Shown here is a 67-nucleotide RNA from Paraburkholderia eburnea, a member of the family "Fluoride riboswitch aptamer (crcB RNA motif)". Taxonomically the source falls in Paraburkholderia (Bacteria, Pseudomonadati, Pseudomonadota, Burkholderiaceae). A search with the family's covariance model found it, with a score of 54 bits.
RNA sequence: GAUAGCUACGGAGAUGGCAUUCUCCGCCAACCGCCGGCCCCAUCCGGCUAAUGAUGCCUACGGUUCC
Numbered sequence: 001g002a003u004a005g006c007u008a009c010g011g012a013g014a015u016g017g018c019a020u021u022c023u024c025c026g027c028c029a030a031c032c033g034c035c036g037g038c039c040c041c042a043u044c045c046g047g048c049u050a051a052u053g054a055u056g057c058c059u060a061c062g063g064u065u066c067c
Stems, first nucleotide, its partner, number of pairs: 010025004016058006033048004